[Rfam]
RNA sequence: AUCGACGAAUUAUGCGGAAAGUAGUUGUUGAACACGAAGCCGCGCGCCUGAUCGAUGGUGUGGAAGAGCGGGUUCCAGUCGAACAUCGCGACCAUGUAGCCGGGCAGGGCAUUGGCCACGAACAUCUUGCCCGAGGCGAUCAUGUUGGCGCG
Numbered sequence: 001a002u003c004g005a006c007g008a009a010u011u012a013u014g015c016g017g018a019a020a021g022u023a024g025u026u027g028u029u030g031a032a033c034a035c036g037a038a039g040c041c042g043c044g045c046g047c048c049u050g051a052u053c054g055a056u057g058g059u060g061u062g063g064a065a066g067a068g069c070g071g072g073u074u075c076c077a078g079u080c081g082a083a084c085a086u087c088g089c090g091a092c093c094a095u096g097u098a099g100c101c102g103g104g105c106a107g108g109g110c111a112u113u114g115g116c117c118a119c120g121a122a123c124a125u126c127u128u129g130c131c132c133g134a135g136g137c138g139a140u141c142a143u144g145u146u147g148g149c150g151c152g
Stems, first nucleotide, its partner, number of pairs: 002037003007033001010032002014028004039059004043054002069152002072084004088149002091146001093144004100136002103132002105129005112121003
Rfam assigns this 152-nucleotide sequence from Poseidonocella sedimentorum to the family "Ruegeria cis2 sRNA". By type it is a small RNA.